RNA: atpB RNA
RNA sequence: CUGCUGCAGCAUCGCUGAUGUGCGACGGAGUCCGUUGCUGCAGCAGAUAGUUUUAGACGUCCAUCGCACCGUACGAUUUUGUAAAUCAUACGGCCCGAACACGGGAGAGAACGCUGAGCGUUACAAC
Numbered sequence: 001c002u003g004c005u006g007c008a009g010c011a012u013c014g015c016u017g018a019u020g021u022g023c024g025a026c027g028g029a030g031u032c033c034g035u036u037g038c039u040g041c042a043g044c045a046g047a048u049a050g051u052u053u054u055a056g057a058c059g060u061c062c063a064u065c066g067c068a069c070c071g072u073a074c075g076a077u078u079u080u081g082u083a084a085a086u087c088a089u090a091c092g093g094c095c096c097g098a099a100c101a102c103g104g105g106a107g108a109g110a111a112c113g114c115u116g117a118g119c120g121u122u123a124c125a126a127c
Stems, first nucleotide, its partner, number of pairs: 001046011069093005075087004